[Rfam]
RNA: c-di-AMP riboswitch aptamer (ydaO/yuaA leader)
Organism: Streptomyces lydicus
RNA sequence: GAUGACCGGUCGACGAGGUGGAUCGGCGGGAGCGGAGGACCCGAGCAGGACGGGGUCCGGGCCUCAUGGCCACGGACUCCUUGGGGUGAAGCCGUGCAGACGGCCGGGCAUCUUCGCCUGUCCGAACCCGACAGGUCUCCCUUCGCAGGCGGCUGACGAAGGGUUU
Numbered sequence: 001g002a003u004g005a006c007c008g009g010u011c012g013a014c015g016a017g018g019u020g021g022a023u024c025g026g027c028g029g030g031a032g033c034g035g036a037g038g039a040c041c042c043g044a045g046c047a048g049g050a051c052g053g054g055g056u057c058c059g060g061g062c063c064u065c066a067u068g069g070c071c072a073c074g075g076a077c078u079c080c081u082u083g084g085g086g087u088g089a090a091g092c093c094g095u096g097c098a099g100a101c102g103g104c105c106g107g108g109c110a111u112c113u114u115c116g117c118c119u120g121u122c123c124g125a126a127c128c129c130g131a132c133a134g135g136u137c138u139c140c141c142u143u144c145g146c147a148g149g150c151g152g153c154u155g156a157c158g159a160a161g162g163g164u165u166u
Stems, first nucleotide, its partner, number of pairs: 032146006042083004084129003092103004106123004